[Rfam]
RNA sequence: UGAUUUGCUCGUAGAGCGCGAGCAGCAUAAUAUAAAGAAAGCUCAAUUGAUG
Numbered sequence: 001u002g003a004u005u006u007g008c009u010c011g012u013a014g015a016g017c018g019c020g021a022g023c024a025g026c027a028u029a030a031u032a033u034a035a036a037g038a039a040a041g042c043u044c045a046a047u048u049g050a051u052g
Stems, first nucleotide, its partner, number of pairs: 006024006014044004